[Rfam]
RNA sequence: UGUUGGCGAUGUUGGUUUGUGACCGUCACUAACGGGCAGUGUGUGAUUUUGCUCGUUUUGAUGAUCGCAAAAUGAACUCGCCUGAC
Numbered sequence: 001u002g003u004u005g006g007c008g009a010u011g012u013u014g015g016u017u018u019g020u021g022a023c024c025g026u027c028a029c030u031a032a033c034g035g036g037c038a039g040u041g042u043g044u045g046a047u048u049u050u051g052c053u054c055g056u057u058u059u060g061a062u063g064a065u066c067g068c069a070a071a072a073u074g075a076a077c078u079c080g081c082c083u084g085a086c
Stems, first nucleotide, its partner, number of pairs: 003085002005082005012075003016071007024063002031057008

Source information
Rfam assigns this 86-nucleotide sequence from Danaus chrysippus to the family "mir-274 microRNA precursor family". Gene Ontology terms of the family: miRNA-mediated post-transcriptional gene silencing and RISC complex. A reference for the family is Lai et al. (2003), "Computational identification of Drosophila microRNA genes", Genome Biol.